[Rfam]
RNA sequence: UAAUCAAAAAAUUGAAUCCCCUGUAUAAUCUUGGAGAUAUGGUCCAUAAGUUUCUACCAGACCACCGUAAACGGUCUGACUACGGGAGUGCAUGCUGAUUCU
Numbered sequence: 001u002a003a004u005c006a007a008a009a010a011a012u013u014g015a016a017u018c019c020c021c022u023g024u025a026u027a028a029u030c031u032u033g034g035a036g037a038u039a040u041g042g043u044c045c046a047u048a049a050g051u052u053u054c055u056a057c058c059a060g061a062c063c064a065c066c067g068u069a070a071a072c073g074g075u076c077u078g079a080c081u082a083c084g085g086g087a088g089u090g091c092a093u094g095c096u097g098a099u100u101c102u
Base pairs, nucleotide, nucleotide: 018088020086021085022084023083024082025081029049032046033045034044035043058078059077060076061075062074063073
Rfam assigns this 102-nucleotide sequence from Proteiniclasticum ruminis to the family "Purine riboswitch aptamer".
Lineage of the source: Bacteria > Bacillati > Clostridia > Eubacteriales > Proteiniclasticum.